Record summary:
The family of this 386-nucleotide RNA sequence from Mucilaginibacter sp. PPCGB 2223 is "Bacterial RNase P class A". Its family is annotated with tRNA processing, dimeric ribonuclease P complex and ribonuclease P activity in the Gene Ontology. The family's consensus secondary structure is taken from published work.

[Rfam]
Nucleotides: 386
Stems, first nucleotide, its partner, number of pairs: 003380008011371001012336007020035006040369003044366005049215004056271001058269002061211005066080005081098001082096004099206002104204002106200003121147002123143003127139005155173002158170003178193006219293004229284006262276004300319003304315001306313002
Number, partner (000 for none) and nucleotide at each position: 001000a002000a003380a004379g005378c006377a007376a008375a009374c010373c011371g012336c013335u014334c015333u016332a017331u018330c019000g020035c021034u022033g023032c024031c025030u026000u027000u028000c029000g030025g031024g032023g033022c034021g035020g036000a037000g038000g039000a040369a041368a042367g043000u044366c045365c046364g047363g048362g049215c050214a051213a052212c053000a054000c055000a056271g057000g058269g059268c060000a061211u062210c063209c064208u065207g066080c067079u068078u069077c070076c071000u072000a073000a074000c075000g076070g077069g078068a079067a080066g081098g082096c083095g084094c085093c086000g087000c088000c089000a090000g091000u092000u093085g094084g095083c096082g097000a098081c099206g100205g101000a102000a103000a104204g105203u106200g107199c108198c109000a110000c111000a112000g113000a114000a115000a116000a117000u118000a119000u120000a121147c122146c123143g124142c125141c126000g127139c128138g129137g130136u131135a132000u133000u134000a135131u136130g137129c138128c139127g140000g141125g142124g143123u144000a145000a146122g147121g148000u149000u150000g151000a152000a153000a154000a155173c156172g157000c158170g159169a160168g161000g162000u163000a164000a165000g166000a167000g168160c169159u170158c171000a172156c173155g174000g175000c176000c177000u178193u179192g180191u181190a182189u183188g184000g185000u186000a187000a188183c189182a190181u191180g192179c193178a194000u195000u196000g197000c198108g199107g200106u201000a202000a203105a204104c205100c206099c207065c208064a209063g210062g211061a212052g213051u214050u215049g216000a217000a218000a219293a220292a221291c222290c223000a224000a225000a226000u227000a228000g229284g230283u231282u232281a233280c234279a235000a236000a237000a238000g239000c240000g241000g242000a243000g244000c245000u246000g247000c248000c249000c250000g251000c252000u253000c254000c255000c256000u257000u258000c259000c260000g261000g262276u263275g264274c265273c266000c267000u268059g269058c270000a271056c272000c273265g274264g275263u276262a277000u278000u279234u280233g281232u282231a283230a284229u285000g286000g287000g288000u289000a290222g291221g292220u293219u294000g295000u296000u297000a298000g299000a300319g301318c302317c303000u304315g305000a306313c307312a308000g309000c310000a311000a312307u313306g314000c315304c316000c317302g318301g319300c320000c321000c322000a323000g324000a325000u326000a327000a328000a329000u330018g331017a332016u333015a334014g335013a336012g337000g338000u339000c340000c341000c342000g343000g344000u345000u346000u347000a348000a349000c350000c351000g352000g353000g354000a355000a356000a357000c358000a359000g360000a361000a362048c363047c364046c365045g366044g367042c368041u369040u370000a371011c372000a373010g374009g375008u376007u377006u378005g379004c380003u381000a382000c383000u384000g385000g386000a